[Rfam]
RNA sequence: GUGAGCCCCCCCCCCCCCCCCGAGUGGCGGGGCCAGCUCUGGAAACCUGGAUUCAGUCCCCGCAGGAACUCCGGAGCUCUCGGUUUGCAGGGCCUGGAGGCUCCGGGGCGGG
Numbered sequence: 001g002u003g004a005g006c007c008c009c010c011c012c013c014c015c016c017c018c019c020c021c022g023a024g025u026g027g028c029g030g031g032g033c034c035a036g037c038u039c040u041g042g043a044a045a046c047c048u049g050g051a052u053u054c055a056g057u058c059c060c061c062g063c064a065g066g067a068a069c070u071c072c073g074g075a076g077c078u079c080u081c082g083g084u085u086u087g088c089a090g091g092g093c094c095u096g097g098a099g100g101c102u103c104c105g106g107g108g109c110g111g112g
Base pairs, nucleotide, nucleotide: 003103004102005101006100007099009096012092013091014090026085027084028083030081031080032079035078036077037076038075039074040073041072042071043070046066047065048064049063
This 112-nucleotide RNA from Canis lupus belongs to the Rfam family "mir-8834 microRNA precursor family".
Taxonomically the source falls in Canis lupus (Eukaryota, Opisthokonta, Eumetazoa, Amniota).